[Rfam]
RNA sequence: GCCUGAAAGAGGAAGAAUAUAUGGUCUUAGAGUAGUGGGAAUGGGAACAUGGAGGAAACCCUUACUUACUCGGUUUUCACCUCUAGUAUCGGAGGUUAGAACCGAGUGUGGUGUUUUCCGAUGCCUCCCAUUCCUAUUAUUCUAAGGCACUCGUUCCUCUUUAUUUUUUGG
Numbered sequence: 001g002c003c004u005g006a007a008a009g010a011g012g013a014a015g016a017a018u019a020u021a022u023g024g025u026c027u028u029a030g031a032g033u034a035g036u037g038g039g040a041a042u043g044g045g046a047a048c049a050u051g052g053a054g055g056a057a058a059c060c061c062u063u064a065c066u067u068a069c070u071c072g073g074u075u076u077u078c079a080c081c082u083c084u085a086g087u088a089u090c091g092g093a094g095g096u097u098a099g100a101a102c103c104g105a106g107u108g109u110g111g112u113g114u115u116u117u118c119c120g121a122u123g124c125c126u127c128c129c130a131u132u133c134c135u136a137u138u139a140u141u142c143u144a145a146g147g148c149a150c151u152c153g154u155u156c157c158u159c160u161u162u163a164u165u166u167u168u169u170g171g
Stems, first nucleotide, its partner, number of pairs: 009162005015156003023150001025147010036136011048123003052119001054118005060113001
Dot-bracket structure: ........(((((.(((.....(.((((((((((.(((((((((((.(((.(.(((((.(....................................................))))))).)))..))))))))))).))))))))))..)...))).))))).........
RNA: MIR2118 microRNA precursor family
Organism: Triticum aestivum